About this RNA
Gammaprotebacteria rimP leader: a 100-nucleotide sequence from Pantoea vagans. The literature on the family includes a 2010 paper in Genome Biol by Naville and Gautheret, "Premature terminator analysis sheds light on a hidden world of bacterial transcriptional attenuation". Taxonomically the source falls in Pantoea (Bacteria, Pseudomonadati, Pseudomonadota, Gammaproteobacteria). It is annotated as a cis-regulatory leader.
RNA sequence: AGCCGCCAUGCGGCGUACAGGGUCCAGUCACAAAAAGCCCCGAAUAUUCGGGGUUUUUUGUUAUCAGGAAUCGCAACACUGGGCUAUAGGCCCUUUUUUU
Numbered sequence: 001a002g003c004c005g006c007c008a009u010g011c012g013g014c015g016u017a018c019a020g021g022g023u024c025c026a027g028u029c030a031c032a033a034a035a036a037g038c039c040c041c042g043a044a045u046a047u048u049c050g051g052g053g054u055u056u057u058u059u060g061u062u063a064u065c066a067g068g069a070a071u072c073g074c075a076a077c078a079c080u081g082g083g084c085u086a087u088a089g090g091c092c093c094u095u096u097u098u099u100u
Base pairs, nucleotide, nucleotide: 034057035056036055037054038053039052040051041050042049081093082092083091084090